The family of this 89-nucleotide sequence from Salmonella enterica is "sroD RNA". The sequence is in the family's curated seed alignment. Taxonomically the source falls in Salmonella enterica subsp. enterica serovar Schwarzengrund (Bacteria, Pseudomonadota, Salmonella, Salmonella enterica subsp. enterica). The base pairs follow the family's consensus structure, which was predicted with PFOLD.
[Rfam]
RNA sequence: CUGCGUGACGAAGCCCGUGGCAAAGUAGACAAUAAAGCCUGAGCGUUAAGUCAGCUAACGAGAGACGCCGGUUAAGCCGGCGUUUUUUU
Numbered sequence: 001c002u003g004c005g006u007g008a009c010g011a012a013g014c015c016c017g018u019g020g021c022a023a024a025g026u027a028g029a030c031a032a033u034a035a036a037g038c039c040u041g042a043g044c045g046u047u048a049a050g051u052c053a054g055c056u057a058a059c060g061a062g063a064g065a066c067g068c069c070g071g072u073u074a075a076g077c078c079g080g081c082g083u084u085u086u087u088u089u
Base pairs, nucleotide, nucleotide: 015062016060017059019039020038021037064084065083066082067081068080069079070078071077